[Rfam]
RNA sequence: AAAAGGAGCAAUAAUCCCUCUUGAUAGAAAAGAGGGAUUAUUGCUCCUUUUUUUAUU
Numbered sequence: 001a002a003a004a005g006g007a008g009c010a011a012u013a014a015u016c017c018c019u020c021u022u023g024a025u026a027g028a029a030a031a032g033a034g035g036g037a038u039u040a041u042u043g044c045u046c047c048u049u050u051u052u053u054u055a056u057u
Stems, first nucleotide, its partner, number of pairs: 002050013018034005

The family of this 57-nucleotide RNA sequence from Weigela florida is "Plastid-psbA-3 3UTR RNA". For this family Rfam cites "Retrograde signaling in plants: A critical review focusing on the GUN pathway and beyond" (Richter et al., Plant Commun, 2023). Plastid psbA-3 is a non-coding RNA (ncRNA) present in plastids. It was identified in inverted repeat sequences in the 3 prime untranslate region (3UTR) of photosystem II quinone-binding protein (psbA). The sequence is in the family's curated seed alignment. Pairs were carried over by alignment from the consensus structure, which was predicted with LocARNA. By type it is a cis-regulatory element.